[Rfam]
RNA sequence: AUGACGGGACGACCCGCCAUCGCAUAACAAAACGCAGGACGGCCUGC
Numbered sequence: 001a002u003g004a005c006g007g008g009a010c011g012a013c014c015c016g017c018c019a020u021c022g023c024a025u026a027a028c029a030a031a032a033c034g035c036a037g038g039a040c041g042g043c044c045u046g047c
Base pairs, nucleotide, nucleotide: 001020002019003018005016006015007014008013034047035046036045037044038043